[Rfam]
RNA: mir-927 microRNA precursor family
RNA sequence: UUUAGAAUUCCUACGCUUUACCGUACAAUUUUAUCGGCAAAGCGUUUGAAUUGUAAAAC
Numbered sequence: 001u002u003u004a005g006a007a008u009u010c011c012u013a014c015g016c017u018u019u020a021c022c023g024u025a026c027a028a029u030u031u032u033a034u035c036g037g038c039a040a041a042g043c044g045u046u047u048g049a050a051u052u053g054u055a056a057a058a059c
Stems, first nucleotide, its partner, number of pairs: 001057004006052001008050003013045007021037002